[Rfam]
RNA sequence: GUAUUGUGGGGACCGCCUCCCAUGAGAGGCGUUGGGCAUUAGCCAGCAACGACGGCCUGCACGCGAGACUAGACCCCUUCGUUCGUGCACACAUCCUUCAAGCAGCCGUCGCAGCCAGCCACGCCAUUUUUUUGU
Numbered sequence: 001g002u003a004u005u006g007u008g009g010g011g012a013c014c015g016c017c018u019c020c021c022a023u024g025a026g027a028g029g030c031g032u033u034g035g036g037c038a039u040u041a042g043c044c045a046g047c048a049a050c051g052a053c054g055g056c057c058u059g060c061a062c063g064c065g066a067g068a069c070u071a072g073a074c075c076c077c078u079u080c081g082u083u084c085g086u087g088c089a090c091a092c093a094u095c096c097u098u099c100a101a102g103c104a105g106c107c108g109u110c111g112c113a114g115c116c117a118g119c120c121a122c123g124c125c126a127u128u129u130u131u132u133u134g135u
Stems, first nucleotide, its partner, number of pairs: 006127004010120002014031006035044003046115002050111007058089004064085004
RNA: Burkholderia sRNA 39
Organism: Paraburkholderia tagetis